This 61-nucleotide RNA sequence from Parasynechococcus marenigrum belongs to the Rfam family "Glutamine-II riboswitch aptamer". A reference for the family is Huang et al. (2019), "Structure and ligand binding of the glutamine-II riboswitch", Nucleic Acids Res. Rfam links the family to the GO term glutamine binding.
RNA sequence: UUACGUUGAGCUUCUUCAAUGAAGCUGCAGUCAGACCCACGCCAGGCAACGGGGGCAUGGG
Numbered sequence: 001u002u003a004c005g006u007u008g009a010g011c012u013u014c015u016u017c018a019a020u021g022a023a024g025c026u027g028c029a030g031u032c033a034g035a036c037c038c039a040c041g042c043c044a045g046g047c048a049a050c051g052g053g054g055g056c057a058u059g060g061g
Stems, first nucleotide, its partner, number of pairs: 004051005010025005036061004041056001042054002
Dot-bracket structure: ...(((((.(((((......)))))..........[[[[.[[[...))))).]].].]]]]